The record is a 160-nucleotide RNA from Phaedon cochleariae, which matches "U12 minor spliceosomal RNA" in Rfam. It scores 100 bits against the family's covariance model. Taxonomically the source falls in Phaedon (Eukaryota, Ecdysozoa, Arthropoda, Eumetabola).

[Rfam]
RNA sequence: GUGCCUUAAACUAAUGAGUAAGGAAAAUAUACGAGCCUUGGUGACGCUUGGCUUACAUGCUUAGCCCGAGGCUUUGCCUGUGAAUUUUUGCAGGGGUACAGGUCGUCCCGUGGAGGGUUGCCUACUUUCAGCAGCCUACCUGGUGAUAGCGAUCUGCCCC
Numbered sequence: 001g002u003g004c005c006u007u008a009a010a011c012u013a014a015u016g017a018g019u020a021a022g023g024a025a026a027a028u029a030u031a032c033g034a035g036c037c038u039u040g041g042u043g044a045c046g047c048u049u050g051g052c053u054u055a056c057a058u059g060c061u062u063a064g065c066c067c068g069a070g071g072c073u074u075u076g077c078c079u080g081u082g083a084a085u086u087u088u089u090g091c092a093g094g095g096g097u098a099c100a101g102g103u104c105g106u107c108c109c110g111u112g113g114a115g116g117g118u119u120g121c122c123u124a125c126u127u128u129c130a131g132c133a134g135c136c137u138a139c140c141u142g143g144u145g146a147u148a149g150c151g152a153u154c155u156g157c158c159c160c
Stems, first nucleotide, its partner, number of pairs: 004023005033054005040047001055079001058076002093160005100155007109143001112140002115137001117135005